[Rfam]
Nucleotides: 138
Base pairs, nucleotide, nucleotide: 020052023049024048026047027046028045034042035041036040082114083113084112085110086109087108089106090105091104092103093102094101127138128137129136130135
Number, partner (000 for none) and nucleotide at each position: 001000a002000g003000c004000u005000u006000u007000g008000c009000a010000c011000a012000g013000u014000g015000g016000c017000a018000g019000u020052a021000c022000c023049a024048u025000a026047g027046c028045c029000a030000a031000u032000a033000a034042g035041g036040g037000u038000u039000a040036u041035c042034u043000g044000a045028g046027g047026u048024g049023u050000a051000a052020u053000u054000a055000u056000u057000g058000c059000a060000u061000g062000a063000a064000a065000a066000u067000g068000u069000u070000u071000c072000c073000c074000a075000a076000u077000a078000c079000u080000u081000g082114g083113u084112c085110g086109u087108g088000a089106u090105g091104a092103c093102u094101u095000g096000a097000a098000a099000u100000a101094g102093a103092g104091u105090c106089a107000a108087c109086a110085u111000u112084g113083g114082c115000a116000a117000u118000c119000u120000u121000u122000g123000a124000c125000a126000g127138u128137c129136u130135c131000u132000a133000c134000g135130g136129a137128g138127a

The family of this 138-nucleotide RNA from Macaca nemestrina is "U4 spliceosomal RNA". The family's RNA type in Rfam is spliceosomal small nuclear RNA. About the family: U4 small nuclear RNA (U4 snRNA) is a component of the major U2-dependent spliceosome. Lineage of the source: Eukaryota > Chordata > Dipnotetrapodomorpha > Euarchontoglires > Macaca.